[Rfam]
RNA sequence: ACCCCCUCACAGUGGGCAAGGAGACACCUGAUUGGUGGUGUUGCUCUUGUAUCAUUCAGGAGCAAAGCAGUCCUUAGUUCAUCCUAGUUUGAUGCCUGUGUUGGUGGCCAGAGCUGUUUCAUGCCUGAGGCACAUAU
Numbered sequence: 001a002c003c004c005c006c007u008c009a010c011a012g013u014g015g016g017c018a019a020g021g022a023g024a025c026a027c028c029u030g031a032u033u034g035g036u037g038g039u040g041u042u043g044c045u046c047u048u049g050u051a052u053c054a055u056u057c058a059g060g061a062g063c064a065a066a067g068c069a070g071u072c073c074u075u076a077g078u079u080c081a082u083c084c085u086a087g088u089u090u091g092a093u094g095c096c097u098g099u100g101u102u103g104g105u106g107g108c109c110a111g112a113g114c115u116g117u118u119u120c121a122u123g124c125c126u127g128a129g130g131c132a133c134a135u136a137u
Stems, first nucleotide, its partner, number of pairs: 003062001005060003012055004019048003023042006077131003091125001093123001097121002102116002105113001
RNA: Small nucleolar RNA SNORA48